This 97-nucleotide sequence from Fusarium irregulare belongs to the Rfam family "tRNA". For this family Rfam cites "The tertiary structure of tRNA and the development of the genetic code" (Hou, Trends Biochem Sci, 1993). The organism belongs to Fusarium incarnatum-equiseti species complex, within Eukaryota. The base pairs follow the family's consensus structure, which is taken from published work.
[Rfam]
Nucleotides: 097
Base pairs, nucleotide, nucleotide: 001096002095003094004093005092006091007090010025011024012023027062028061029060030059031058073089074088075087076086077085
Number, partner (000 for none) and nucleotide at each position: 001096g002095c003094c004093u005092g006091u007090g008000u009000g010025g011024c012023c013000g014000a015000g016000u017000g018000g019000u020000u021000a022000a023012g024011g025010c026000g027062g028061u029060a030059g031058u032000u033000u034000u035000a036000a037000g038000u039000u040000c041000u042000c043000c044000u045000u046000a047000c048000u049000u050000a051000a052000a053000a054000c055000a056000c057000u058031a059030c060029u061028a062027c063000a064000g065000u066000g067000a068000u069000g070000u071000u072000c073089g074088c075087g076086a077085g078000u079000u080000c081000g082000a083000a084000u085077c086076u087075c088074g089073u090007c091006g092005c093004a094003g095002g096001c097000a